[Rfam]
RNA sequence: GGCUUUCUUCGCGGCGGAGCUCGACCGCCCCAACAGCAGAUGAUCGCGUACAUCGACGAACACAAGGAUGAGUUCGGGGUCGAGCCGAUUUGCAGGGAACUGCCCAUCGCCCCG
Numbered sequence: 001g002g003c004u005u006u007c008u009u010c011g012c013g014g015c016g017g018a019g020c021u022c023g024a025c026c027g028c029c030c031c032a033a034c035a036g037c038a039g040a041u042g043a044u045c046g047c048g049u050a051c052a053u054c055g056a057c058g059a060a061c062a063c064a065a066g067g068a069u070g071a072g073u074u075c076g077g078g079g080u081c082g083a084g085c086c087g088a089u090u091u092g093c094a095g096g097g098a099a100c101u102g103c104c105c106a107u108c109g110c111c112c113c114g
Stems, first nucleotide, its partner, number of pairs: 013029005075114005086109002089106001092103004